[Rfam]
RNA sequence: CUCUGUAAAUAUAAAAUAUUUGGUUUUGGUCCUCGGUAUUUUGUUUUAAUCAUUGUAAAAUCAUUUCGUACUGAAAUUGGUCCCUAUAAUAUUCAUUUUAAUCCUCAUUUUGAGGGACUAAAAUCAAAUAUUAUGCAUAUUACAAGGACUAAAACAAAAUACCAAGAACCAAAACCAAUUUUUUAUAUUUGCAGGGA
Numbered sequence: 001c002u003c004u005g006u007a008a009a010u011a012u013a014a015a016a017u018a019u020u021u022g023g024u025u026u027u028g029g030u031c032c033u034c035g036g037u038a039u040u041u042u043g044u045u046u047u048a049a050u051c052a053u054u055g056u057a058a059a060a061u062c063a064u065u066u067c068g069u070a071c072u073g074a075a076a077u078u079g080g081u082c083c084c085u086a087u088a089a090u091a092u093u094c095a096u097u098u099u100a101a102u103c104c105u106c107a108u109u110u111u112g113a114g115g116g117a118c119u120a121a122a123a124u125c126a127a128a129u130a131u132u133a134u135g136c137a138u139a140u141u142a143c144a145a146g147g148a149c150u151a152a153a154a155c156a157a158a159a160u161a162c163c164a165a166g167a168a169c170c171a172a173a174a175c176c177a178a179u180u181u182u183u184u185a186u187a188u189u190u191g192c193a194g195g196g197a
Stems, first nucleotide, its partner, number of pairs: 006191008015182002018179003022176009032166002036162013050148002053145006060138002066133001068131003072126002077121007087112003091108002